[Rfam]
RNA sequence: UCGUUAUCAAGAAAGGUUGAGGGAAUAGACCCGUUGAAACCUUGGCAACCCUCCUGUAAUGGGAGAAGGUGCUACAUUCUACUUCGCUUCUUUGGCGCAGAUAGAUAACAA
Numbered sequence: 001u002c003g004u005u006a007u008c009a010a011g012a013a014a015g016g017u018u019g020a021g022g023g024a025a026u027a028g029a030c031c032c033g034u035u036g037a038a039a040c041c042u043u044g045g046c047a048a049c050c051c052u053c054c055u056g057u058a059a060u061g062g063g064a065g066a067a068g069g070u071g072c073u074a075c076a077u078u079c080u081a082c083u084u085c086g087c088u089u090c091u092u093u094g095g096c097g098c099a100g101a102u103a104g105a106u107a108a109c110a111a
Stems, first nucleotide, its partner, number of pairs: 001111001003109006013043005021032003026081004044073004049069002051065004077103001082100002085097003
RNA: SAM riboswitch aptamer (S box leader)
Organism: Salegentibacter mishustinae